[Rfam]
RNA sequence: GUAACAAGUAUUGUUACAUAUAGCACUGGCCUACAAGGGAAAAUCCUGGCCAGUGCUCAUGUAACAAUUCUGGUAGCU
Numbered sequence: 001g002u003a004a005c006a007a008g009u010a011u012u013g014u015u016a017c018a019u020a021u022a023g024c025a026c027u028g029g030c031c032u033a034c035a036a037g038g039g040a041a042a043a044u045c046c047u048g049g050c051c052a053g054u055g056c057u058c059a060u061g062u063a064a065c066a067a068u069u070c071u072g073g074u075a076g077c078u
Stems, first nucleotide, its partner, number of pairs: 001077002004074002007071002010068010022057010
Dot-bracket structure: ((.((.((.((((((((((..((((((((((................)))))))))).)))))))))).)).)).)).
MIR6145 microRNA precursor family: a 78-nucleotide RNA from Nicotiana tabacum.